[Rfam]
The family of this 108-nucleotide RNA sequence from Methanopyrus kandleri is "Pab19 RNA". The base pairs follow the family's consensus structure. A search with the family's covariance model found it, with a score of 55 bits. A reference for the family is Muller et al. (2008), "Combined in silico and experimental identification of the Pyrococcus abyssi H/ACA sRNAs and their target sites in ribosomal RNAs", Nucleic Acids Res. Rfam links the family to the GO term RNA processing. About the family: By using various computational and experimental approaches in three Pyrococcus genomes seven H/ACA sRNAs and 15 pseudouridine resides on rRNA were identified.

RNA sequence: GUUCCGAUGAGCCGGUGCUCCGGGCCCCCGGUACAUCCGACGGCGGCGUCGGGAGGUAGGUGGUGAGAAUCACCUCCGAUGACCUCCCGCCCUCCAGCCGGGGGCACA
Numbered sequence: 001g002u003u004c005c006g007a008u009g010a011g012c013c014g015g016u017g018c019u020c021c022g023g024g025c026c027c028c029c030g031g032u033a034c035a036u037c038c039g040a041c042g043g044c045g046g047c048g049u050c051g052g053g054a055g056g057u058a059g060g061u062g063g064u065g066a067g068a069a070u071c072a073c074c075u076c077c078g079a080u081g082a083c084c085u086c087c088c089g090c091c092c093u094c095c096a097g098c099c100g101g102g103g104g105c106a107c108a
Base pairs, nucleotide, nucleotide: 001018002017004015005014024105025104026103027102028101029100030099031098032097050089051088052087053086055084056083057082059077060076062074063073064072065071066070